[Rfam]
RNA sequence: GAGAUACCCUUAUGGAGCAAGUCUUGCUUAGUGGGACUUUGGUGCUCACUGAGUCUGCCCCUUGAGUGUGUCACU
Numbered sequence: 001g002a003g004a005u006a007c008c009c010u011u012a013u014g015g016a017g018c019a020a021g022u023c024u025u026g027c028u029u030a031g032u033g034g035g036a037c038u039u040u041g042g043u044g045c046u047c048a049c050u051g052a053g054u055c056u057g058c059c060c061c062u063u064g065a066g067u068g069u070g071u072c073a074c075u
Base pairs, nucleotide, nucleotide: 001074003072004071005070006069007068009066010065011064012063014061015060017058018057019056021055023053028052029051030050031049032048033047034046035045036043037042
Shown here is a 75-nucleotide RNA sequence from Myotis myotis, a member of the family "mir-9229 microRNA precursor family". The family has 7 seed sequences and 27,225 matches in Rfam 15.1. Pairs were carried over by alignment from the consensus structure, which was predicted with RNAalifold.